This 104-nucleotide RNA sequence from Butyricicoccus pullicaecorum belongs to the Rfam family "azaaromatic riboswitch aptamer (yjdF RNA)".
A search with the family's covariance model found it, with a score of 77 bits.

RNA sequence: AGGAGCGGAGCAGAAAACACAGUCCGGUUGGUAGUCCGGGCACAGCGGAACCUCCGCUGUCAGUAACCUGCCUCCUUUGGUUGUCCGUGCUUCGUGAUGCGCAG
Numbered sequence: 001a002g003g004a005g006c007g008g009a010g011c012a013g014a015a016a017a018c019a020c021a022g023u024c025c026g027g028u029u030g031g032u033a034g035u036c037c038g039g040g041c042a043c044a045g046c047g048g049a050a051c052c053u054c055c056g057c058u059g060u061c062a063g064u065a066a067c068c069u070g071c072c073u074c075c076u077u078u079g080g081u082u083g084u085c086c087g088u089g090c091u092u093c094g095u096g097a098u099g100c101g102c103a104g
Base pairs, nucleotide, nucleotide: 005095006094007093008092009091010090011089022041023040024039025038026037027036042060043059044058045057046056047055048054049053070081071080072079
Dot-bracket structure: ....(((((((..........((((((........))))))((((((((...)))))))).........(((......))).......))))))).........